[Rfam]
RNA sequence: UCCGGUCCUCGGUAGUGGCCUCCGGGAGCCGCGCGCAGGCGCAGGCAGCCCGUGGGCUUCGAUCGAUGGCCGUC
Numbered sequence: 001u002c003c004g005g006u007c008c009u010c011g012g013u014a015g016u017g018g019c020c021u022c023c024g025g026g027a028g029c030c031g032c033g034c035g036c037a038g039g040c041g042c043a044g045g046c047a048g049c050c051c052g053u054g055g056g057c058u059u060c061g062a063u064c065g066a067u068g069g070c071c072g073u074c
Stems, first nucleotide, its partner, number of pairs: 003072005009066005017058005023052004
The family of this 74-nucleotide RNA from Nesterenkonia xinjiangensis is "Actino-pnp RNA". Rfam classes the family as a cis-regulatory element.